This 87-nucleotide sequence from Pongo pygmaeus belongs to the Rfam family "mir-515 microRNA precursor family". Gene Ontology terms of the family: miRNA-mediated post-transcriptional gene silencing and RISC complex. Its Rfam clan is "mir-290 clan".
[Rfam]
RNA sequence: UCUCAUGCUGUGACUCUACAAAGGGAAGCCCUUUCUGUUGUCUAAAAAAAAAGAAAGUGCUUCUCUUUGGUGGGUUACGGUUUGAGA
Numbered sequence: 001u002c003u004c005a006u007g008c009u010g011u012g013a014c015u016c017u018a019c020a021a022a023g024g025g026a027a028g029c030c031c032u033u034u035c036u037g038u039u040g041u042c043u044a045a046a047a048a049a050a051a052a053g054a055a056a057g058u059g060c061u062u063c064u065c066u067u068u069g070g071u072g073g074g075u076u077a078c079g080g081u082u083u084g085a086g087a
Base pairs, nucleotide, nucleotide: 001087002086003085004084005083007081008080009079010078011077012076013075014074016073017072018071020068021067022066023065024064025063026062027061028060029059031057032056033055034054035053038052039051

On this family, see Bentwich et al., Nat Genet 2005: "Identification of hundreds of conserved and nonconserved human microRNAs". Lineage of the source: Eukaryota > Bilateria > Amniota > Eutheria > Pongo.